[Rfam]
The record is a 103-nucleotide sequence from Spirosoma montaniterrae, which matches "Bacteroidales small SRP" in Rfam.
It scores 83 bits against the family's covariance model.
Clan: SRP clan.
RNA sequence: UUUGCGUCGGCAAAUCGGUGCUACCAGCUCCUGCUGAAUCCCCCAGGUCUUGACCGAAGCAAGGGUAGGUGGUUGUAGCGGUGAGACAUUGGUUUGCCAUUUU
Numbered sequence: 001u002u003u004g005c006g007u008c009g010g011c012a013a014a015u016c017g018g019u020g021c022u023a024c025c026a027g028c029u030c031c032u033g034c035u036g037a038a039u040c041c042c043c044c045a046g047g048u049c050u051u052g053a054c055c056g057a058a059g060c061a062a063g064g065g066u067a068g069g070u071g072g073u074u075g076u077a078g079c080g081g082u083g084a085g086a087c088a089u090u091g092g093u094u095u096g097c098c099a100u101u102u103u
Base pairs, nucleotide, nucleotide: 009098010097011096012095013094014093015092016091017090018089019088020087021085022084023082024081